[Rfam]
RNA sequence: UAAUAAAAGCAUUAAGUGGAUGCCUUGGCAUUAAUUUAAUUUUUAGGACGUAAAAAUGCGAAAAGCUAUAUCAAAUAUAAAAAUAUUUUGAGAUAUAGAUCUCCUAGAGAAAACUUUUUCUUUGUGAAAAUUUUAAAAGCAGUGAACUGAAAUAUCUAAGUAACUGUUAAAAAAAUCAAACGAGAAUCCGUUAGUAGUGACGAGCGAAAAUGGAUAUAGGUUUAUAAAAAUAAUUGAAUAUUAUUUGAAGAAUUUUGAAAAAUUCACUAAAAAAGGUUAAAGUCCUGUAGAAUGAUAUUUAUUUUUAUAUUAGUAAGAAGGGAUAUGUGUAGUCUUUUUUGAAUAUUGGGGAACCACCCUCAAAACCUGUAAAAAUUAAUGACCGAUAGUGAACAAGUACUGUAAAGGAAAGGUGAAAAAGAACUUUCGAGUUUGAAAUAAUUCUGAAACUUAAUGUUAAUAAU
Number, nucleotide and partner (000 for none) at each position: 001u000002a000003a000004u000005a000006a000007a000008a458009g457010c456011a455012u454013u453014a452015a451016g450017u000018g000019g000020a000021u000022g444023c413024c412025u000026u000027g384028g383029c381030a380031u379032u378033a377034a376035u375036u373037u372038a134039a133040u000041u000042u000043u000044u000045a105046g104047g103048a102049c060050g059051u058052a000053a000054a000055a000056a000057u000058g051059c050060g049061a000062a000063a000064a000065g000066c098067u097068a096069u095070a094071u093072c092073a000074a000075a086076u085077a084078u000079a000080a000081a000082a000083a000084u077085a076086u075087u000088u000089u000090g000091a000092g072093a071094u070095a069096u068097a067098g066099a000100u000101c000102u048103c047104c046105u045106a000107g116108a115109g114110a000111a000112a000113a000114c109115u108116u107117u129118u128119u127120c126121u000122u000123u000124g000125u000126g120127a119128a118129a117130a000131u000132u000133u039134u038135a000136a000137a000138a168139g167140c166141a165142g164143u163144g000145a000146a000147c000148u000149g156150a155151a000152a000153u000154a000155u150156c149157u000158a000159a000160g000161u000162a000163a143164c142165u141166g140167u139168u138169a000170a000171a000172a000173a000174a000175a000176u183177c182178a000179a000180a000181c000182g177183a176184g000185a000186a000187u214188c213189c212190g211191u210192u000193a000194g000195u000196a000197g205198u204199g000200a000201c000202g000203a000204g198205c197206g000207a000208a000209a000210a191211u190212g189213g188214a187215u000216a000217u000218a368219g367220g366221u365222u000223u000224a000225u000226a308227a000228a304229a303230a302231u301232a300233a000234u000235u000236g000237a000238a000239u000240a296241u000242u000243a000244u292245u291246u290247g000248a000249a000250g265251a264252a263253u262254u261255u000256u000257g000258a000259a000260a000261a254262a253263u252264u251265c250266a000267c000268u272269a000270a000271a000272a268273a000274a286275g285276g284277u000278u000279a000280a000281a000282g000283u000284c276285c275286u274287g000288u000289a000290g246291a245292a244293u000294g000295a000296u240297a000298u000299u000300u232301a231302u230303u229304u228305u000306u000307a000308u226309a000310u000311u000312a000313g000314u000315a000316a340317g339318a338319a337320g336321g335322g334323a333324u332325a000326u000327g000328u000329g000330u000331a000332g324333u323334c322335u321336u320337u319338u318339u317340u316341g000342a000343a000344u000345a000346u000347u362348g361349g360350g359351g358352a000353a000354c000355c000356a000357c000358c351359c350360u349361c348362a347363a000364a000365a221366c220367c219368u218369g000370u000371a000372a037373a036374a000375a035376u034377u033378a032379a031380u030381g029382a000383c028384c027385g000386a000387u000388a000389g000390u000391g000392a000393a000394c000395a000396a000397g000398u000399a000400c407401u406402g000403u000404a000405a000406a401407g400408g000409a000410a000411a000412g024413g023414u000415g000416a000417a000418a000419a000420a000421g000422a000423a432424c431425u430426u000427u000428c000429g000430a425431g424432u423433u000434u000435g000436a000437a000438a000439u000440a000441a000442u000443u000444c022445u000446g000447a000448a000449a000450c016451u015452u014453a013454a012455u011456g010457u009458u008459a000460a000461u000462a000463a000464u000
A member of the RNA family "Bacterial large subunit ribosomal RNA", 464 nucleotides of a longer RNA.